Shown here is a 98-nucleotide sequence from Flavobacteriaceae bacterium 144Ye, a member of the family "Flavo-1 RNA".
The match comes from Rfam's covariance-model search (56 bits).
The source organism's lineage runs through Bacteria, Pseudomonadati, Bacteroidota, Flavobacteriales and Flavobacteriaceae.
RNA sequence: GUGCGUUAGCGAUUGAAGUGGCAUCCUUUUUAUUUGCCGCUUCGAGCGCAGUCGAGAAGUUGUCAAAUAAAAAGAUAUAACGUAAAGCGCGACCCUUG
Numbered sequence: 001g002u003g004c005g006u007u008a009g010c011g012a013u014u015g016a017a018g019u020g021g022c023a024u025c026c027u028u029u030u031u032a033u034u035u036g037c038c039g040c041u042u043c044g045a046g047c048g049c050a051g052u053c054g055a056g057a058a059g060u061u062g063u064c065a066a067a068u069a070a071a072a073a074g075a076u077a078u079a080a081c082g083u084a085a086a087g088c089g090c091g092a093c094c095c096u097u098g
Base pairs, nucleotide, nucleotide: 009090010089011088013086014085018081019080023076024075025074029071030070031069032068033067034066035065036064